[Rfam]
RNA: tRNA
Organism: Mucilaginibacter terrigena
RNA sequence: GGAGAGGUGUCUGAGUGGUCGAAAGAGCACGCCUGGAAAGUGUGUAUAUGCCAAAAGUGUAUCGAGGGUUCGAAUCCCUCCCUCUCCG
Numbered sequence: 001g002g003a004g005a006g007g008u009g010u011c012u013g014a015g016u017g018g019u020c021g022a023a024a025g026a027g028c029a030c031g032c033c034u035g036g037a038a039a040g041u042g043u044g045u046a047u048a049u050g051c052c053a054a055a056a057g058u059g060u061a062u063c064g065a066g067g068g069u070u071c072g073a074a075u076c077c078c079u080c081c082c083u084c085u086c087c088g
Stems, first nucleotide, its partner, number of pairs: 001087007010026003028044005064080005